Rfam assigns this 111-nucleotide sequence from Tetrahymena thermophila to the family "Tetrahymena snoRNA TtnuHACA25". On this family, see Andersen and Nielsen, Nucleic Acids Res 2012: "Experimental identification and analysis of macronuclear non-coding RNAs from the ciliate Tetrahymena thermophila". Rfam links the family to the GO terms RNA processing and nucleolus. The organism belongs to Tetrahymena, within Eukaryota. Pairs were carried over by alignment from the consensus structure, which was predicted with mfold.
RNA sequence: AGAAUUUCGACAAUAAUAUUGAUAUUCUCAUGAAGUAGGCAAAGAAUAAAAUCACUAGCAAGCUGGUAUAGUAAUUUCAUAUUACUACGCUUGAUGAGCAGUGAGAUACUU
Numbered sequence: 001a002g003a004a005u006u007u008c009g010a011c012a013a014u015a016a017u018a019u020u021g022a023u024a025u026u027c028u029c030a031u032g033a034a035g036u037a038g039g040c041a042a043a044g045a046a047u048a049a050a051a052u053c054a055c056u057a058g059c060a061a062g063c064u065g066g067u068a069u070a071g072u073a074a075u076u077u078c079a080u081a082u083u084a085c086u087a088c089g090c091u092u093g094a095u096g097a098g099c100a101g102u103g104a105g106a107u108a109c110u111u
Stems, first nucleotide, its partner, number of pairs: 001110002004107005011021004027098005033092004054067005069087007